[Rfam]
Shown here is a 588-nucleotide part of an RNA from Finegoldia magna, a member of the family "Bacterial large subunit ribosomal RNA". Rfam links the family to the GO terms ribosome and structural constituent of ribosome. Lineage of the source: Bacteria > Bacillota > Tissierellia > Tissierellales > Finegoldia magna.
RNA sequence: CCCACGGUAGGACGGAAAGACCCCAUGGAGCUUUACUGCAGGUUGACAUUGAAUUUUGGGAUUAAAUGUACAGGAUAGGUGGGAGACGAAGAAGCAAGCUCGCCAGAGUUUGCAGAGUCACUGUUGGGAUACCACCCUUCUAAUUCUAAAGUUCUAACUAGUUACCAUGAAGCUGGUAAUAGGACACUGUCAGUCGGGCAGUUUGACUGGGGCGGUCGCCUCCAAAAAAGUAACGGAGGCGUUCAAAGGUUCGCUCAGAAUGGUUGGAAAUCAUUCAAAGAGUACAAAGGCAAAAGCGAGCUUAACUGCGAGACAUACAGGUCGAGCAGAGACGAAAGUCGGACUUAGUGAUCCGGUGGUACCGAGUGGAAGGGCCAUCGCUCAACGGAUAAAAGCUACCCCGGGGAUAACAGGCUUAUCUCCCCCAAGAGUCCACAUCGACGGGGAGGUUUGGCACCUCGAUGUCGGCUCGUCUCAUCCUGGAGCUGGAGUAGGUUCCAAGGGUUGGGCUGUUCGCCCAUUAAAGAGGCACGCGAGCUGGGUUCAGAACGUCGUGAGACAGUUCGGUCCCUAUCCACCGUGGGCGUG
Numbered sequence: 001c002c003c004a005c006g007g008u009a010g011g012a013c014g015g016a017a018a019g020a021c022c023c024c025a026u027g028g029a030g031c032u033u034u035a036c037u038g039c040a041g042g043u044u045g046a047c048a049u050u051g052a053a054u055u056u057u058g059g060g061a062u063u064a065a066a067u068g069u070a071c072a073g074g075a076u077a078g079g080u081g082g083g084a085g086a087c088g089a090a091g092a093a094g095c096a097a098g099c100u101c102g103c104c105a106g107a108g109u110u111u112g113c114a115g116a117g118u119c120a121c122u123g124u125u126g127g128g129a130u131a132c133c134a135c136c137c138u139u140c141u142a143a144u145u146c147u148a149a150a151g152u153u154c155u156a157a158c159u160a161g162u163u164a165c166c167a168u169g170a171a172g173c174u175g176g177u178a179a180u181a182g183g184a185c186a187c188u189g190u191c192a193g194u195c196g197g198g199c200a201g202u203u204u205g206a207c208u209g210g211g212g213c214g215g216u217c218g219c220c221u222c223c224a225a226a227a228a229a230g231u232a233a234c235g236g237a238g239g240c241g242u243u244c245a246a247a248g249g250u251u252c253g254c255u256c257a258g259a260a261u262g263g264u265u266g267g268a269a270a271u272c273a274u275u276c277a278a279a280g281a282g283u284a285c286a287a288a289g290g291c292a293a294a295a296g297c298g299a300g301c302u303u304a305a306c307u308g309c310g311a312g313a314c315a316u317a318c319a320g321g322u323c324g325a326g327c328a329g330a331g332a333c334g335a336a337a338g339u340c341g342g343a344c345u346u347a348g349u350g351a352u353c354c355g356g357u358g359g360u361a362c363c364g365a366g367u368g369g370a371a372g373g374g375c376c377a378u379c380g381c382u383c384a385a386c387g388g389a390u391a392a393a394a395g396c397u398a399c400c401c402c403g404g405g406g407a408u409a410a411c412a413g414g415c416u417u418a419u420c421u422c423c424c425c426c427a428a429g430a431g432u433c434c435a436c437a438u439c440g441a442c443g444g445g446g447a448g449g450u451u452u453g454g455c456a457c458c459u460c461g462a463u464g465u466c467g468g469c470u471c472g473u474c475u476c477a478u479c480c481u482g483g484a485g486c487u488g489g490a491g492u493a494g495g496u497u498c499c500a501a502g503g504g505u506u507g508g509g510c511u512g513u514u515c516g517c518c519c520a521u522u523a524a525a526g527a528g529g530c531a532c533g534c535g536a537g538c539u540g541g542g543u544u545c546a547g548a549a550c551g552u553c554g555u556g557a558g559a560c561a562g563u564u565c566g567g568u569c570c571c572u573a574u575c576c577a578c579c580g581u582g583g584g585c586g587u588g
Stems, first nucleotide, its partner, number of pairs: 001584008010576003014571002022405003027401002029397005035202004042194007051154014066139001068137001078136005085119003094113008158182003162179006205217004218240006241386001243343002249301006255281002258276006282291002306329004312323003331340003354380007362373002414455003418452001419449007429439002466541001467539004471533001472530005479504002482499006506520005547565004551560003